[Rfam]
RNA sequence: GGUGGAGAGUUCCAAAGGGAUCGCAUUGAUCCAUUCAUGUUAAUUUGUGCUGGUCAAUUGGAUCGAUCAUGCCAUCCCUUUGGAAUUUUCCAU
Numbered sequence: 001g002g003u004g005g006a007g008a009g010u011u012c013c014a015a016a017g018g019g020a021u022c023g024c025a026u027u028g029a030u031c032c033a034u035u036c037a038u039g040u041u042a043a044u045u046u047g048u049g050c051u052g053g054u055c056a057a058u059u060g061g062a063u064c065g066a067u068c069a070u071g072c073c074a075u076c077c078c079u080u081u082g083g084a085a086u087u088u089u090c091c092a093u
Stems, first nucleotide, its partner, number of pairs: 002093005008087014023072004028068004036061001
The family of this 93-nucleotide sequence from Tripterygium wilfordii is "mir-393 microRNA precursor family". A reference for the family is Kruszka et al. (2012), "Role of microRNAs and other sRNAs of plants in their changing environments", J Plant Physiol. Its family is annotated with RISC complex and miRNA-mediated post-transcriptional gene silencing in the Gene Ontology. The base pairs follow the family's consensus structure. Lineage of the source: Eukaryota > Viridiplantae > Magnoliopsida > Pentapetalae > Tripterygium.